[Rfam]
RNA sequence: GCCCAGGGUAUGUUCACAGGUGAUGCUGCCCUCCCAGCUGCCCCAUGGGUGACCGUGGGAACGUUACUGCCUCACAACAUUUGUGCCUCAGUUACCCAUAGAUGUAGUGAGAGUGACAAAUACUCACUCUCAUUGUGAUAAUGAAGCA
Numbered sequence: 001g002c003c004c005a006g007g008g009u010a011u012g013u014u015c016a017c018a019g020g021u022g023a024u025g026c027u028g029c030c031c032u033c034c035c036a037g038c039u040g041c042c043c044c045a046u047g048g049g050u051g052a053c054c055g056u057g058g059g060a061a062c063g064u065u066a067c068u069g070c071c072u073c074a075c076a077a078c079a080u081u082u083g084u085g086c087c088u089c090a091g092u093u094a095c096c097c098a099u100a101g102a103u104g105u106a107g108u109g110a111g112a113g114u115g116a117c118a119a120a121u122a123c124u125c126a127c128u129c130u131c132a133u134u135g136u137g138a139u140a141a142u143g144a145a146g147c148a
Stems, first nucleotide, its partner, number of pairs: 002059004007054003019030003072138004077105009110130007
RNA: Small nucleolar RNA ACA59
Organism: Rhinopithecus bieti